[Rfam]
RNA sequence: ACAAUGAUACUUUCGUCCAGUCACAGCCCCUCUUGACCGAGGGAUCAAGCAAUGAGGACGACCGGCAGAGAUCCUGGCGGGGGUGAGAUUCCCAUGA
Numbered sequence: 001a002c003a004a005u006g007a008u009a010c011u012u013u014c015g016u017c018c019a020g021u022c023a024c025a026g027c028c029c030c031u032c033u034u035g036a037c038c039g040a041g042g043g044a045u046c047a048a049g050c051a052a053u054g055a056g057g058a059c060g061a062c063c064g065g066c067a068g069a070g071a072u073c074c075u076g077g078c079g080g081g082g083g084u085g086a087g088a089u090u091c092c093c094a095u096g097a
Stems, first nucleotide, its partner, number of pairs: 012094001013061006062080003066076003081093003
A member of the RNA family "pemK RNA", 97 nucleotides long. Rfam classes the family as a cis-regulatory element. The sequence is in the family's curated seed alignment.